[Rfam]
RNA sequence: CGUUGAUGUGAUGAUACUUUUUUCCGGAAAUAUACCGUGUCGACCUAAAAAAUUUUAUUCCAGAUUACAAUUAUCUGAUCAACG
Numbered sequence: 001c002g003u004u005g006a007u008g009u010g011a012u013g014a015u016a017c018u019u020u021u022u023u024c025c026g027g028a029a030a031u032a033u034a035c036c037g038u039g040u041c042g043a044c045c046u047a048a049a050a051a052a053u054u055u056u057a058u059u060c061c062a063g064a065u066u067a068c069a070a071u072u073a074u075c076u077g078a079u080c081a082a083c084g
Stems, first nucleotide, its partner, number of pairs: 001084006
RNA: Small nucleolar RNA Z155